RNA sequence: ACAAGAAGCCUGUCAGUGAAUGGCUCGGUUCGAGUGCUGAUGAGGGGCGUGCCAAGCUGCGAUAAGCUCCGGGGAGAGGCAAGGAAUCUACGAUCCGGAGAUCCCCUAAUAGGACAUCCUGACACUUCGGUGUCGAUCCGUAAGGAUUGGGAACCCCCCGAAUUGAAACAUCUCAGUAGGGGGAGGAAAAGAAAUCAAUCGAGAUGUCGUGAGUAAAGGCGAUCGAAAACGACAGAGUUCAAACUGAAUCCCUUCGGGGAGAUGUGGUGUGGUAGGCCUGCCGUUUGGUUCGUGCGGUGAAGUGGAAGUCGUCUGGAACGACGCGCCAGAGGGGGUGAUAGCCCCGUACAUGUAAACCAAUCGAUCCUGGCAGAGUCCUGAGUACCGUGGGUUGGCAUUCUCGCGGGAAUCUGGGGGUCAUCAACCUCCAAAACUAAAUACACCUCGAAACCGAUAGCGAAGUAGUAGCGUGAGCGAAAGCUGAAAAGUAACCCUGAAAAGGUGGUUAAAAGCGCCUGAAACUGACAGGUGAUAGUGU
Numbered sequence: 001a002c003a004a005g006a007a008g009c010c011u012g013u014c015a016g017u018g019a020a021u022g023g024c025u026c027g028g029u030u031c032g033a034g035u036g037c038u039g040a041u042g043a044g045g046g047g048c049g050u051g052c053c054a055a056g057c058u059g060c061g062a063u064a065a066g067c068u069c070c071g072g073g074g075a076g077a078g079g080c081a082a083g084g085a086a087u088c089u090a091c092g093a094u095c096c097g098g099a100g101a102u103c104c105c106c107u108a109a110u111a112g113g114a115c116a117u118c119c120u121g122a123c124a125c126u127u128c129g130g131u132g133u134c135g136a137u138c139c140g141u142a143a144g145g146a147u148u149g150g151g152a153a154c155c156c157c158c159c160g161a162a163u164u165g166a167a168a169c170a171u172c173u174c175a176g177u178a179g180g181g182g183g184a185g186g187a188a189a190a191g192a193a194a195u196c197a198a199u200c201g202a203g204a205u206g207u208c209g210u211g212a213g214u215a216a217a218g219g220c221g222a223u224c225g226a227a228a229a230c231g232a233c234a235g236a237g238u239u240c241a242a243a244c245u246g247a248a249u250c251c252c253u254u255c256g257g258g259g260a261g262a263u264g265u266g267g268u269g270u271g272g273u274a275g276g277c278c279u280g281c282c283g284u285u286u287g288g289u290u291c292g293u294g295c296g297g298u299g300a301a302g303u304g305g306a307a308g309u310c311g312u313c314u315g316g317a318a319c320g321a322c323g324c325g326c327c328a329g330a331g332g333g334g335g336u337g338a339u340a341g342c343c344c345c346g347u348a349c350a351u352g353u354a355a356a357c358c359a360a361u362c363g364a365u366c367c368u369g370g371c372a373g374a375g376u377c378c379u380g381a382g383u384a385c386c387g388u389g390g391g392u393u394g395g396c397a398u399u400c401u402c403g404c405g406g407g408a409a410u411c412u413g414g415g416g417g418u419c420a421u422c423a424a425c426c427u428c429c430a431a432a433a434c435u436a437a438a439u440a441c442a443c444c445u446c447g448a449a450a451c452c453g454a455u456a457g458c459g460a461a462g463u464a465g466u467a468g469c470g471u472g473a474g475c476g477a478a479a480g481c482u483g484a485a486a487a488g489u490a491a492c493c494c495u496g497a498a499a500a501g502g503u504g505g506u507u508a509a510a511a512g513c514g515c516c517u518g519a520a521a522c523u524g525a526c527a528g529g530u531g532a533u534a535g536u537g538u
Stems, first nucleotide, its partner, number of pairs: 008530009022516001023481002027452002029449006035442002044107004048061003067100006076088002111120003136147004154185001155183005165172002195202002206233005217223001236435004244267003278373004287367002290364001302351003308324001310323004327331001333345003385406007413429005468475002